[Rfam]
Nucleotides: 146
Base pairs, nucleotide, nucleotide: 004143005142006141008140009139010138017029018028019027031127032126033116034115035061036060037059038058056114057113064092065091096112097111098110099109100108118130119129120128
Number, partner (000 for none) and nucleotide at each position: 001000g002000c003000a004143u005142g006141u007000u008140c009139u010138c011000a012000g013000g014000g015000c016000g017029g018028g019027g020000c021000g022000g023000a024000a025000c026000u027019c028018c029017c030000c031127a032126c033116c034115g035061g036060c037059g038058g039000u040000a041000a042000g043000g044000c045000g046000g047000c048000a049000a050000c051000g052000u053000c054000g055000a056114g057113c058038c059037c060036g061035c062000g063000a064092g065091c066000g067000c068000u069000u070000c071000c072000g073000g074000c075000u076000u077000c078000g079000g080000c081000u082000g083000g084000a085000a086000g087000g088000u089000c090000a091065g092064c093000a094000g095000a096112u097111c098110c099109g100108g101000u102000g103000u104000g105000a106000u107000u108100c109099c110098g111097g112096a113057g114056c115034c116033g117000a118130c119129g120128g121000u122000c123000a124000u125000a126032g127031u128120c129119c130118g131000g132000a133000u134000g135000a136000a137000a138010g139009a140008g141006a142005c143004a144000g145000a146000g
The family of this 146-nucleotide RNA from Devosia crocina is "FMN riboswitch aptamer (RFN element)".